[Rfam]
Rfam assigns this 137-nucleotide RNA sequence from Jaculus jaculus to the family "Small nucleolar RNA SNORA4". The organism belongs to Jaculus, within Eukaryota. The family's RNA type in Rfam is H/ACA-box small nucleolar RNA. The family's consensus secondary structure was predicted with PFOLD. ACA4 is a member of the H/ACA class of snoRNA that guide the sites of modification of uridines to pseudouridines.
RNA sequence: UUACCAAUUUAGCUAUUGCGGGGGAAGGUUCUUUAAAUAACCUUUACCAACAUGUGCUAUUUGGGAGAACAAUUCAGACCACACUCCACAGUGGGCUAUACCUUAGUAUAGUUCAUUACUAUUUUGUGGCCUACAUU
Number, nucleotide and partner (000 for none) at each position: 001u000002u000003a000004c064005c063006a062007a061008u000009u000010u059011a058012g057013c056014u000015a000016u000017u000018g000019c000020g051021g000022g000023g048024g047025a000026a045027g042028g041029u040030u039031c000032u000033u000034u000035a000036a000037a000038u000039a030040a029041c028042c027043u000044u000045u026046a000047c024048c023049a000050a000051c020052a000053u000054g000055u000056g013057c012058u011059a010060u000061u007062u006063g005064g004065g000066a000067g000068a000069a000070c000071a000072a000073u000074u000075c000076a132077g131078a000079c129080c128081a127082c126083a125084c000085u000086c000087c000088a000089c000090a117091g116092u115093g114094g113095g112096c111097u110098a109099u108100a107101c106102c000103u000104u000105a000106g101107u100108a099109u098110a097111g096112u095113u094114c093115a092116u091117u090118a000119c000120u000121a000122u000123u000124u000125u083126g082127u081128g080129g079130c000131c077132u076133a000134c000135a000136u000137u000